This 91-nucleotide RNA sequence from Rothia santali belongs to the Rfam family "Glycine riboswitch aptamer". Lineage of the source: Bacteria > Bacillati > Actinomycetes > Micrococcaceae > Rothia. The base pairs follow the family's consensus structure. A search with the family's covariance model found it, with a score of 64 bits.
[Rfam]
RNA sequence: UCACGCGCGGCGGGAGAGCCCCGGUCAGCCGGGCGCCGAAGGAGCAAACCCUCCCCGGGAAACUCUCAGGCCCACGAACCGUCACGCCAGG
Numbered sequence: 001u002c003a004c005g006c007g008c009g010g011c012g013g014g015a016g017a018g019c020c021c022c023g024g025u026c027a028g029c030c031g032g033g034c035g036c037c038g039a040a041g042g043a044g045c046a047a048a049c050c051c052u053c054c055c056c057g058g059g060a061a062a063c064u065c066u067c068a069g070g071c072c073c074a075c076g077a078a079c080c081g082u083c084a085c086g087c088c089a090g091g
Stems, first nucleotide, its partner, number of pairs: 006086002009083005020033004035071003038067002042065003049057001